[Rfam]
RNA sequence: CCCAUCCAAGAUGACGAGUUCAUGUCCUACAUCAUCCAUGGGUUGGACCAAGACUAUCAGCCCCUUGUCUCCGCACUAGAUGCUCGCGUCACCCCGGUAACUCUUGAUGAACUUUUUGCCAUGCUCAGUAACUUUGAUC
Numbered sequence: 001c002c003c004a005u006c007c008a009a010g011a012u013g014a015c016g017a018g019u020u021c022a023u024g025u026c027c028u029a030c031a032u033c034a035u036c037c038a039u040g041g042g043u044u045g046g047a048c049c050a051a052g053a054c055u056a057u058c059a060g061c062c063c064c065u066u067g068u069c070u071c072c073g074c075a076c077u078a079g080a081u082g083c084u085c086g087c088g089u090c091a092c093c094c095c096g097g098u099a100a101c102u103c104u105u106g107a108u109g110a111a112c113u114u115u116u117u118g119c120c121a122u123g124c125u126c127a128g129u130a131a132c133u134u135u136g137a138u139c
Stems, first nucleotide, its partner, number of pairs: 004138003008134001088108004
This 139-nucleotide RNA from Triticum urartu belongs to the Rfam family "Small nucleolar RNA Z247". A search with the family's covariance model found it, with a score of 39 bits. Taxonomically the source falls in Triticum (Eukaryota, Viridiplantae, Euphyllophyta, Magnoliopsida). A reference for the family is Chen et al. (2003), "The high diversity of snoRNAs in plants: identification and comparative study of 120 snoRNA genes from Oryza sativa", Nucleic Acids Res. Rfam links the family to the GO terms nucleolus and RNA processing.